[Rfam]
RNA sequence: CUGGCGUUCAUGAAGGUCCGGCCUCAAAGCAGACUCUGCUGGGCCCGGCUGGAUGUUUCCCGCCAG
Numbered sequence: 001c002u003g004g005c006g007u008u009c010a011u012g013a014a015g016g017u018c019c020g021g022c023c024u025c026a027a028a029g030c031a032g033a034c035u036c037u038g039c040u041g042g043g044c045c046c047g048g049c050u051g052g053a054u055g056u057u058u059c060c061c062g063c064c065a066g
Stems, first nucleotide, its partner, number of pairs: 001066005015050004020045005030038003
A member of the RNA family "Selenocysteine insertion sequence 1" from Salarias fasciatus, 66 nucleotides long. It is annotated as a cis-regulatory element. Pairs were carried over by alignment from the consensus structure, which is taken from published work. A search with the family's covariance model found it, with a score of 37 bits. The literature on the family includes a 1996 paper in RNA by Walczak et al., "A novel RNA structural motif in the selenocysteine insertion element of eukaryotic selenoprotein mRNAs".